[Rfam]
RNA: Vault RNA
Organism: Scyliorhinus torazame
RNA sequence: GCGUCAGCUUUAGCUCGCUGGUUACUUCACAGCAUCAACUAAAUUGUAAGUUCGGACCUGUGUCACCAUGGGCGCUACCUGGCAUUUUU
Numbered sequence: 001g002c003g004u005c006a007g008c009u010u011u012a013g014c015u016c017g018c019u020g021g022u023u024a025c026u027u028c029a030c031a032g033c034a035u036c037a038a039c040u041a042a043a044u045u046g047u048a049a050g051u052u053c054g055g056a057c058c059u060g061u062g063u064c065a066c067c068a069u070g071g072g073c074g075c076u077a078c079c080u081g082g083c084a085u086u087u088u089u
Base pairs, nucleotide, nucleotide: 003083004082005081006080007079013073014072015071016070019068020067021066027065029063030062